The family of this 98-nucleotide sequence from Flavobacterium terrae is "Flavo-1 RNA". It scores 60 bits against the family's covariance model. Lineage of the source: Bacteria > Bacteroidota > Flavobacteriia > Flavobacteriales > Flavobacterium. The family's RNA type in Rfam is small RNA.
RNA sequence: UUGUAACACAGCGUGAGGGAUUGAAGCGACAUCCUUUUUUAGAACAUUGAGGUUUUCGAAAUGUUCUAAAAAAGAUACAGCGAAAAGCCCGACCCAAA
Numbered sequence: 001u002u003g004u005a006a007c008a009c010a011g012c013g014u015g016a017g018g019g020a021u022u023g024a025a026g027c028g029a030c031a032u033c034c035u036u037u038u039u040u041a042g043a044a045c046a047u048u049g050a051g052g053u054u055u056u057c058g059a060a061a062u063g064u065u066c067u068a069a070a071a072a073a074g075a076u077a078c079a080g081c082g083a084a085a086a087g088c089c090c091g092a093c094c095c096a097a098a
Stems, first nucleotide, its partner, number of pairs: 017090003021086002026081002031076003037071012